[Rfam]
RNA sequence: GGGCUAUUAGCUCAGUGGUAGAGCGCGCCCCUGAUAAGGGCGAGGUCUCUGGUUCAAGUCCAGGAUAGCCCA
Numbered sequence: 001g002g003g004c005u006a007u008u009a010g011c012u013c014a015g016u017g018g019u020a021g022a023g024c025g026c027g028c029c030c031c032u033g034a035u036a037a038g039g040g041c042g043a044g045g046u047c048u049c050u051g052g053u054u055c056a057a058g059u060c061c062a063g064g065a066u067a068g069c070c071c072a
Stems, first nucleotide, its partner, number of pairs: 001071007010024004026042005048064005